[Rfam]
RNA sequence: UAUCCCUGUGAAGAAUUGAGAUUAUAAUUAAGUUAAAAGUAGUGGACUGAUAAUCUUUGCUGAAUAAAUCUAUCUGAGGGAUU
Number, nucleotide and partner (000 for none) at each position: 001u000002a082003u081004c080005c079006c078007u000008g000009u000010g000011a000012a000013g000014a000015a000016u000017u000018g000019a000020g000021a000022u000023u000024a000025u000026a000027a000028u000029u000030a000031a000032g000033u000034u000035a000036a000037a000038a000039g000040u000041a000042g000043u000044g000045g000046a000047c000048u000049g000050a000051u000052a000053a000054u000055c000056u000057u000058u000059g000060c000061u000062g000063a000064a000065u000066a000067a000068a000069u000070c000071u000072a000073u000074c000075u000076g000077a000078g006079g005080g004081a003082u002083u000
RNA: Small nucleolar RNA R21